RNA sequence: AGGGUAGGCCGGAUCCUGGGCUGUGUCCCAGAACCCUGUGCUCCCGGUCUACGCUGUUGGAUUCUACGCUGUUGGAUUCGGGCUCCCGGCCGCGCAGCCCCCU
Numbered sequence: 001a002g003g004g005u006a007g008g009c010c011g012g013a014u015c016c017u018g019g020g021c022u023g024u025g026u027c028c029c030a031g032a033a034c035c036c037u038g039u040g041c042u043c044c045c046g047g048u049c050u051a052c053g054c055u056g057u058u059g060g061a062u063u064c065u066a067c068g069c070u071g072u073u074g075g076a077u078u079c080g081g082g083c084u085c086c087c088g089g090c091c092g093c094g095c096a097g098c099c100c101c102c103u
Stems, first nucleotide, its partner, number of pairs: 002101003008095002010092003015089002018086003022082001024080002026076003029071003038064001040063001042061003
Dot-bracket structure: .(((...(((((..((.(((.(.((((((((......(.(.(((..............))).))....)))..)))..)).).))).))))).))...)))..